[Rfam]
RNA sequence: GGGGGCAUGGCGCAAUUGGUAGCGCACCUGCUUUGCAAGCAGGGGGUUCGGGGUUCGAGUCCCCGUGCCUCCA
Numbered sequence: 001g002g003g004g005g006c007a008u009g010g011c012g013c014a015a016u017u018g019g020u021a022g023c024g025c026a027c028c029u030g031c032u033u034u035g036c037a038a039g040c041a042g043g044g045g046g047u048u049c050g051g052g053g054u055u056c057g058a059g060u061c062c063c064c065g066u067g068c069c070u071c072c073a
Stems, first nucleotide, its partner, number of pairs: 001072007010025004027043005049065005
The record is a 73-nucleotide RNA from Arthrobacter nitrophenolicus, which matches "tRNA" in Rfam. It scores 71 bits against the family's covariance model. Rfam describes the family as follows. Transfer RNA (tRNA) molecules are approximately 80 nucleotides in length. Their secondary structure includes four short double-helical elements and three loops (D, anti-codon, and T loops). Further hydrogen bonds mediate the characteristic L-shaped molecular structure. tRNAs have two regions of fundamental functional importance: the anti-codon, which is responsible for specific mRNA codon recognition, and the 3' end, to which the tRNAs corresponding amino acid is attached (by aminoacyl-tRNA synthetases). tRNAs cope with the degeneracy of the genetic code in two manners: having more than one tRNA (with a specific anti-codon) for a particular amino acid; and 'wobble' base-pairing, i.e. permitting non-standard base-pairing at the 3rd anti-codon position. The source organism's lineage runs through Bacteria, Bacillati, Actinomycetota, Micrococcaceae and Arthrobacter. The base pairs follow the family's consensus structure, which is taken from published work.